[Rfam]
RNA sequence: AGAUAUGUUCAUAGAGCAGUGAACAGGAUAAUCAAAAGAAAUGCUCAAUAAGA
Dot-bracket structure: .....((((((..[[[[..)))))).................]]]].......